[Rfam]
Nucleotides: 282
Base pairs, nucleotide, nucleotide: 002014003013004012017279019277020276021275022274023273028269029268030267031266033264037263038262039261041258042257043256047254048253049252050251051250052249053248054247055246056245057244058243059242060241073239074238075237076236079233080232081231082230083229084228086223087222088221089220090219091218092217093216095213096212097211098210100208101207102206103205106143107142109140110139112135113134115133116132117131118130119129121128122127151155160203161202162201163200164199165198170195171194172193177188178187179186
Number, partner (000 for none) and nucleotide at each position: 001000a002014a003013g004012c005000u006000g007000u008000a009000g010000c011000g012004g013003c014002u015000c016000a017279a018000u019277g020276g021275g022274a023273a024000u025000g026000a027000a028269g029268a030267c031266a032000c033264c034000u035000g036000a037263u038262u039261u040000u041258c042257u043256c044000a045000a046000u047254u048253g049252g050251c051250g052249c053248u054247a055246u056245u057244c058243c059242a060241a061000a062000a063000c064000c065000a066000u067000a068000a069000g070000a071000a072000c073239c074238c075237c076236g077000c078000a079233a080232c081231u082230g083229u084228g085000c086223c087222c088221a089220g090219c091218g092217c093216g094000a095213g096212c097211g098210c099000c100208g101207c102206a103205g104000u105000g106143g107142c108000c109140a110139c111000c112135c113134a114000c115133u116132c117131g118130c119129u120000u121128a122127g123000g124000u125000a126000a127122c128121u129119a130118g131117c132116g133115a134113u135112g136000c137000u138000u139110g140109u141000c142107g143106u144000g145000u146000g147000u148000g149000c150000c151155u152000g153000a154000a155151g156000u157000a158000a159000c160203g161202a162201a163200g164199a165198c166000g167000a168000a169000c170195c171194u172193u173000g174000a175000g176000g177188g178187a179186g180000g181000c182000c183000u184000c185000a186179c187178u188177c189000u190000g191000c192000a193172g194171a195170g196000a197000c198165g199164u200163c201162u202161u203160c204000a205103c206102u207101g208100u209000u210098g211097c212096g213095c214000g215000g216093c217092g218091u219090g220089c221088u222087g223086g224000a225000u226000u227000a228084c229083a230082c231081g232080g233079u234000c235000u236076c237075g238074g239073g240000c241060u242059u243058g244057g245056g246055g247054u248053a249052g250051u251050g252049c253048u254047g255000u256043g257042a258041g259000a260000u261039g262038g263037g264033g265000a266031u267030g268029u269028c270000a271000a272000c273023u274022u275021c276020u277019u278000u279017u280000u281000u282000u
The record is a 282-nucleotide RNA sequence from Coniella lustricola, which matches "Fungal signal recognition particle RNA" in Rfam. A reference for the family is Wild et al. (2002), "Towards the structure of the mammalian signal recognition particle", Curr Opin Struct Biol. The family's RNA type in Rfam is non-coding RNA gene. A search with the family's covariance model found it, with a score of 123 bits. The family's consensus secondary structure is taken from published work.